This 76-nucleotide RNA sequence from Alligator mississippiensis belongs to the Rfam family "Mammalian CPEB3 ribozyme". The match comes from Rfam's covariance-model search (50 bits). The organism belongs to Alligator, within Eukaryota.
RNA sequence: AGUGCCAUAACAGCCAUAGCAGAAGUGUUCAUGUCACAGACCCUGUCAGAUUUAAAUGAAUCUGCCCAAUUCUGCC
Numbered sequence: 001a002g003u004g005c006c007a008u009a010a011c012a013g014c015c016a017u018a019g020c021a022g023a024a025g026u027g028u029u030c031a032u033g034u035c036a037c038a039g040a041c042c043c044u045g046u047c048a049g050a051u052u053u054a055a056a057u058g059a060a061u062c063u064g065c066c067c068a069a070u071u072c073u074g075c076c
Base pairs, nucleotide, nucleotide: 013043014039019075020074021073022072023071024070025037026036027035047064048063049062050061051060052059053058